[Rfam]
RNA: DUF3800-X RNA
Organism: Methanobacterium paludis
RNA sequence: AAGUGAGUAAGUCCCCCAGAAAGGAUGAUGUCCACGUAUGUGGAGUGGGACGAGUACGGUGGGGUUCACUU
Numbered sequence: 001a002a003g004u005g006a007g008u009a010a011g012u013c014c015c016c017c018a019g020a021a022a023g024g025a026u027g028a029u030g031u032c033c034a035c036g037u038a039u040g041u042g043g044a045g046u047g048g049g050a051c052g053a054g055u056a057c058g059g060u061g062g063g064g065u066u067c068a069c070u071u
Base pairs, nucleotide, nucleotide: 001071002070003069004068005067006066012064013063014062015061016059017058031044032043033042034041035040